[Rfam]
RNA sequence: AGCAUUUGUGUGUGUACUUGUUUAACUUGUGGAUGAAGAUUUAUAAAGAUGCAAAAACUAAAACCUCUUUUACAACCCAGAACUCACUGUUUAGUAUGAAUUUUGAAACAUAUAAGAAGGGAUAUU
Numbered sequence: 001a002g003c004a005u006u007u008g009u010g011u012g013u014g015u016a017c018u019u020g021u022u023u024a025a026c027u028u029g030u031g032g033a034u035g036a037a038g039a040u041u042u043a044u045a046a047a048g049a050u051g052c053a054a055a056a057a058c059u060a061a062a063a064c065c066u067c068u069u070u071u072a073c074a075a076c077c078c079a080g081a082a083c084u085c086a087c088u089g090u091u092u093a094g095u096a097u098g099a100a101u102u103u104u105g106a107a108a109c110a111u112a113u114a115a116g117a118a119g120g121g122a123u124a125u126u
Stems, first nucleotide, its partner, number of pairs: 002052006009045001011043001014040002018036004026031001062123001064121003068117005078105005084099003
A member of the RNA family "Small nucleolar RNA SNORA40" from Oryctolagus cuniculus, 126 nucleotides long. The organism belongs to Oryctolagus, within Eukaryota. It scores 101 bits against the family's covariance model. Rfam classes the family as an H/ACA-box small nucleolar RNA. The snoRNA ACA 40 belongs to the H/ACA family of snoRNAs and guides the pseudouridylation of 28S rRNA subunit at position U4565.